[Rfam]
RNA sequence: CAGCGGGACACCCUUCCCCACCGAAGGGCAAAUAUCUGGAAGGAUACCAUGA
Numbered sequence: 001c002a003g004c005g006g007g008a009c010a011c012c013c014u015u016c017c018c019c020a021c022c023g024a025a026g027g028g029c030a031a032a033u034a035u036c037u038g039g040a041a042g043g044a045u046a047c048c049a050u051g052a
Base pairs, nucleotide, nucleotide: 011028012027013026014025015024016023033046034045035044036043037042
Background:
A member of the RNA family "serC leader" from Paragemmobacter aquarius, 52 nucleotides long. Rfam describes the family as follows. This family is a putative regulatory RNA structure that is found upstream of the serC-serA operon in some alpha-proteobacteria. The final stem of the structure overlaps the ribosome binding site of the serC reading frame. Pairs were carried over by alignment from the consensus structure. On this family, see Corbino et al., Genome Biol 2005: "Evidence for a second class of S-adenosylmethionine riboswitches and other regulatory RNA motifs in alpha-proteobacteria". Gene Ontology term of the family: regulation of gene expression. It is annotated as a cis-regulatory leader. The match comes from Rfam's covariance-model search (68 bits).